Description
The family of this 299-nucleotide RNA sequence from Aphis glycines is "Metazoan signal recognition particle RNA". About the family: The signal recognition particle (SRP) is a universally conserved ribonucleoprotein. Its family is annotated with signal recognition particle, endoplasmic reticulum targeting and SRP-dependent cotranslational protein targeting to membrane, signal sequence recognition in the Gene Ontology. The match comes from Rfam's covariance-model search (242 bits). Its Rfam clan is "SRP clan". Lineage of the source: Eukaryota > Opisthokonta > Mandibulata > Aphidomorpha > Aphis.
RNA sequence: ACUGGGAGCGGCGGCGCGCUCCUGUAAUCCGGCUGCUCGGAGGUCGGAUUGCGUGGAUGGUUUGAGGUGGGGACAACUGUGGCAGGUCGGUCCGCGUUGAACGGACGUCCGCGCUAAGCUUGUCGUCAAUAUGGGUCCAGUGGGGUAGCCCGCAGGACCCAGGUUAGCUAAGGAGAGGCGAACCGGGCCAGGGGGGAAACCCAGCAGCCAAAAGUCUCCGCGGUGAGCAGUAGUGGGAUAGCGUCUGCGAGUAGAACACCUGUUCGCAGCCCUGUCAAUACAAUCAGACCGCAAUCUAA
Numbered sequence: 001a002c003u004g005g006g007a008g009c010g011g012c013g014g015c016g017c018g019c020u021c022c023u024g025u026a027a028u029c030c031g032g033c034u035g036c037u038c039g040g041a042g043g044u045c046g047g048a049u050u051g052c053g054u055g056g057a058u059g060g061u062u063u064g065a066g067g068u069g070g071g072g073a074c075a076a077c078u079g080u081g082g083c084a085g086g087u088c089g090g091u092c093c094g095c096g097u098u099g100a101a102c103g104g105a106c107g108u109c110c111g112c113g114c115u116a117a118g119c120u121u122g123u124c125g126u127c128a129a130u131a132u133g134g135g136u137c138c139a140g141u142g143g144g145g146u147a148g149c150c151c152g153c154a155g156g157a158c159c160c161a162g163g164u165u166a167g168c169u170a171a172g173g174a175g176a177g178g179c180g181a182a183c184c185g186g187g188c189c190a191g192g193g194g195g196g197a198a199a200c201c202c203a204g205c206a207g208c209c210a211a212a213a214g215u216c217u218c219c220g221c222g223g224u225g226a227g228c229a230g231u232a233g234u235g236g237g238a239u240a241g242c243g244u245c246u247g248c249g250a251g252u253a254g255a256a257c258a259c260c261u262g263u264u265c266g267c268a269g270c271c272c273u274g275u276c277a278a279u280a281c282a283a284u285c286a287g288a289c290c291g292c293a294a295u296c297u298a299a
Stems, first nucleotide, its partner, number of pairs: 001044003004023007028041003046297008058286005066276007077269006083262005091255002094252002097249001102247007109237002112235005118228009128165003132161007140153005168172001175218005186209003193202003